The family of this 91-nucleotide sequence from Rossellomorea marisflavi is "Glycine riboswitch aptamer". It scores 71 bits against the family's covariance model. The source organism's lineage runs through Bacteria, Bacillati, Bacillota, Caryophanales and Rossellomorea.
[Rfam]
RNA sequence: AUGAUGACAAGGGGAGAGACUGCAGUCUGCAGCGCCGAAGGAGCAAGCAUCAAGAUGUGAAUCUCUCAGGCAAAAAGACUCUUGUCGGACG
Numbered sequence: 001a002u003g004a005u006g007a008c009a010a011g012g013g014g015a016g017a018g019a020c021u022g023c024a025g026u027c028u029g030c031a032g033c034g035c036c037g038a039a040g041g042a043g044c045a046a047g048c049a050u051c052a053a054g055a056u057g058u059g060a061a062u063c064u065c066u067c068a069g070g071c072a073a074a075a076a077g078a079c080u081c082u083u084g085u086c087g088g089a090c091g
Base pairs, nucleotide, nucleotide: 006086007085008084009083010082011081012080013079020032021031022030023029034071035070036069037067038066041065042064043063047058048057

Annotation: Rfam 15.1 lists 9,425 matches to the family in 5,228 species. Pairs were carried over by alignment from the consensus structure.